[Rfam]
RNA: Purine riboswitch aptamer
Nucleotides: 098
Stems, first nucleotide, its partner, number of pairs: 018084008030046004056074006
Number, partner (000 for none) and nucleotide at each position: 001000a002000u003000a004000a005000u006000a007000c008000a009000a010000g011000a012000a013000a014000a015000a016000a017000u018084u019083a020082a021081u022080u023079g024078u025077a026000u027000a028000a029000a030046g031045a032044u033043g034000u035000a036000a037000u038000a039000a040000g041000g042000u043033c044032a045031u046030c047000a048000g049000u050000c051000u052000c053000u054000a055000c056074c057073c058072a059071u060070u061069a062000c063000c064000g065000u066000a067000a068000a069061u070060a071059a072058u073057g074056g075000a076000c077025u078024a079023c080022a081021a082020u083019u084018a085000u086000u087000a088000u089000g090000a091000a092000a093000u094000u095000a096000a097000u098000u